Nucleotides: 203
Stems, first nucleotide, its partner, number of pairs: 008026007029095003033089004051080004055075007115192003120186005127181005133175002139166003142157001143155005
Number, partner (000 for none) and nucleotide at each position: 001000a002000a003000u004000a005000a006000a007000a008026a009025u010024u011023a012022a013021u014020c015000g016000u017000g018000c019000g020014g021013a022012u023011u024010a025009a026008u027000a028000a029095u030094c031093c032000a033089a034088g035087a036086c037000u038000a039000u040000a041000a042000a043000a044000c045000c046000g047000u048000g049000u050000u051080g052079c053078c054077u055075a056074u057073u058072u059071g060070c061069u062000u063000u064000u065000c066000u067000u068000u069061a070060g071059u072058g073057g074056a075055u076000u077054a078053g079052g080051c081000g082000u083000c084000a085000a086036g087035u088034c089033u090000a091000a092000c093031g094030g095029a096000g097000a098000g099000a100000u101000u102000g103000a104000a105000u106000u107000c108000g109000a110000u111000c112000a113000u114000c115192u116191u117190a118000a119000u120186g121185c122184c123183c124182u125000u126000u127181u128180a129179u130178g131177g132000c133175g134174a135000u136000u137000c138000a139166c140165g141164u142157a143155a144154u145153u146152a147151u148000g149000g150000a151147g152146u153145a154144a155143u156000u157142u158000a159000u160000a161000a162000u163000u164141a165140u166139g167000g168000a169000a170000u171000a172000u173000a174134u175133c176000a177131u178130c179129g180128u181127a182124a183123g184122g185121g186120c187000u188000g189000g190117u191116a192115g193000a194000u195000c196000g197000g198000a199000c200000a201000g202000u203000a

Annotation:
Small nucleolar RNA snR35: a 203-nucleotide RNA from Henningerozyma blattae. The base pairs follow the family's consensus structure, which was predicted with WAR.